RNA sequence: CGCAAGAAACGGCAAGGUAUCUGAAAGGGUGCUACGCAAAGUUAUCGGUCUAAGGUUUUUAUUUAAAAGGCUUUUUUGUUGAAUAAACUACUACGACAGCGGUACUACCUAA
Numbered sequence: 001c002g003c004a005a006g007a008a009a010c011g012g013c014a015a016g017g018u019a020u021c022u023g024a025a026a027g028g029g030u031g032c033u034a035c036g037c038a039a040a041g042u043u044a045u046c047g048g049u050c051u052a053a054g055g056u057u058u059u060u061a062u063u064u065a066a067a068a069g070g071c072u073u074u075u076u077u078g079u080u081g082a083a084u085a086a087a088c089u090a091c092u093a094c095g096a097c098a099g100c101g102g103u104a105c106u107a108c109c110u111a112a
Stems, first nucleotide, its partner, number of pairs: 012037002017032006040106003045102003048097003055091002